RNA sequence: GGAGUAACCCACCCGGCAAAGACUGCCCAUCAGCCGGAAGCGAGUCUUGGGUGGCGAUGUGGCGACCCCCGUCACGAAGCGUAGACAGCGAGUGAACAGGCCGUGUGAUUGAGCCUCGAAACACGCAACUCGGGAGCCGACGUCUUAAUGGCGACGCAAGGCAGCACGGAACCACCGCGCUGGCAAGGUGGCGAAGUCCCGGCGGGGUCGGAGAGCG
Numbered sequence: 001g002g003a004g005u006a007a008c009c010c011a012c013c014c015g016g017c018a019a020a021g022a023c024u025g026c027c028c029a030u031c032a033g034c035c036g037g038a039a040g041c042g043a044g045u046c047u048u049g050g051g052u053g054g055c056g057a058u059g060u061g062g063c064g065a066c067c068c069c070c071g072u073c074a075c076g077a078a079g080c081g082u083a084g085a086c087a088g089c090g091a092g093u094g095a096a097c098a099g100g101c102c103g104u105g106u107g108a109u110u111g112a113g114c115c116u117c118g119a120a121a122c123a124c125g126c127a128a129c130u131c132g133g134g135a136g137c138c139g140a141c142g143u144c145u146u147a148a149u150g151g152c153g154a155c156g157c158a159a160g161g162c163a164g165c166a167c168g169g170a171a172c173c174a175c176c177g178c179g180c181u182g183g184c185a186a187g188g189u190g191g192c193g194a195a196g197u198c199c200c201g202g203c204g205g206g207g208u209c210g211g212a213g214a215g216c217g
Stems, first nucleotide, its partner, number of pairs: 013037004021031002024186001027183001040089002044086004048081002051075006059068001061066001110211001111209001113208006130202006136162003141156004167196001172191005
Overview
Rfam assigns this 217-nucleotide sequence from Nitrococcus mobilis to the family "Group II catalytic intron D1-D4-6". Rfam describes the family as follows. Group II introns are found in rRNA, tRNA and mRNA of organelles in fungi, plants and protists, and also in mRNA in bacteria.